[Rfam]
RNA sequence: UUUAAGUGAAACCAUGAGUUUUUUACCGAACUUUGAUUGUCUGUCUUAUUUGAAAUUUUUUUAUAAUUAGUAUUUUUACUGUUAUGAGAUGAUAAAGCAUGAAUAAUACUUUAUGCAUGACUUAUGCUUUUAAUUUUUUCAAAUUUUUUUCAAAUAAGACGAACGAUCAAAGUUUAGCACGGAAAAUCAUGGCUGCACUUAAA
Numbered sequence: 001u002u003u004a005a006g007u008g009a010a011a012c013c014a015u016g017a018g019u020u021u022u023u024u025a026c027c028g029a030a031c032u033u034u035g036a037u038u039g040u041c042u043g044u045c046u047u048a049u050u051u052g053a054a055a056u057u058u059u060u061u062u063a064u065a066a067u068u069a070g071u072a073u074u075u076u077u078a079c080u081g082u083u084a085u086g087a088g089a090u091g092a093u094a095a096a097g098c099a100u101g102a103a104u105a106a107u108a109c110u111u112u113a114u115g116c117a118u119g120a121c122u123u124a125u126g127c128u129u130u131u132a133a134u135u136u137u138u139u140c141a142a143a144u145u146u147u148u149u150u151c152a153a154a155u156a157a158g159a160c161g162a163a164c165g166a167u168c169a170a171a172g173u174u175u176a177g178c179a180c181g182g183a184a185a186a187u188c189a190u191g192g193c194u195g196c197a198c199u200u201a202a203a
Stems, first nucleotide, its partner, number of pairs: 026177001028175013042161008
Annotation:
This 203-nucleotide RNA sequence from Oryza sativa belongs to the Rfam family "MIR812 microRNA precursor family". Rfam's curators put it in the seed alignment. Gene Ontology terms of the family: miRNA-mediated post-transcriptional gene silencing and RISC complex.